[Rfam]
Shown here is a 119-nucleotide RNA sequence from Pyrus ussuriensis x Pyrus communis, a member of the family "MIR828 microRNA precursor family".

RNA sequence: GUAAUGGUUCUUGCUCAAAUGAGUAUUCCAGCCACAGUUUGCCGGCAGUUUGCAUAUAUAUAUAUAUAGCACUGGUGCUUCUGCAAUUCUGAGAUGCUCAUUUGAGCAAGCAGCGUUAC
Dot-bracket structure: ...(((.(.((((((((((((((((((.((...........................................................)).)))))))))))))))))).).)))...
Numbered sequence: 001g002u003a004a005u006g007g008u009u010c011u012u013g014c015u016c017a018a019a020u021g022a023g024u025a026u027u028c029c030a031g032c033c034a035c036a037g038u039u040u041g042c043c044g045g046c047a048g049u050u051u052g053c054a055u056a057u058a059u060a061u062a063u064a065u066a067u068a069g070c071a072c073u074g075g076u077g078c079u080u081c082u083g084c085a086a087u088u089c090u091g092a093g094a095u096g097c098u099c100a101u102u103u104g105a106g107c108a109a110g111c112a113g114c115g116u117u118a119c
Stems, first nucleotide, its partner, number of pairs: 004116003008112001010110018029091002

The organism belongs to Pyrus, within Eukaryota. For this family Rfam cites "A diverse and evolutionarily fluid set of microRNAs in Arabidopsis thaliana" (Rajagopalan et al., Genes Dev, 2006).